[Rfam]
RNA sequence: CCGCACGCGGGAAGCUGACACGCGGUCCGUGCCCACGGUCGCCCAUGACCGCGCCGAGAAACUGGCGAGACCGACCCGCGUAAUC
Number, nucleotide and partner (000 for none) at each position: 001c000002c000003g000004c000005a081006c080007g079008c078009g077010g076011g075012a000013a000014g000015c058016u000017g000018a000019c000020a000021c053022g052023c051024g050025g049026u048027c047028c000029g000030u000031g000032c000033c000034c000035a000036c000037g072038g071039u068040c067041g066042c065043c064044c000045a000046u000047g027048a026049c025050c024051g023052c022053g021054c000055c000056g000057a000058g015059a000060a000061a000062c000063u000064g043065g042066c041067g040068a039069g000070a000071c038072c037073g000074a000075c011076c010077c009078g008079c007080g006081u005082a000083a000084u000085c000
The record is an 85-nucleotide RNA sequence, which matches "c-di-GMP-II-GAG riboswitch aptamer" in Rfam. On this family, see Weinberg et al., Proc Natl Acad Sci U S A 2017: "Bioinformatic analysis of riboswitch structures uncovers variant classes with altered ligand specificity". The base pairs follow the family's consensus structure, which is taken from published work.